[Rfam]
RNA sequence: CUAUGUUAUGGAUUUAACAUGGCGAAAGGAG
Numbered sequence: 001c002u003a004u005g006u007u008a009u010g011g012a013u014u015u016a017a018c019a020u021g022g023c024g025a026a027a028g029g030a031g
Stems, first nucleotide, its partner, number of pairs: 001022008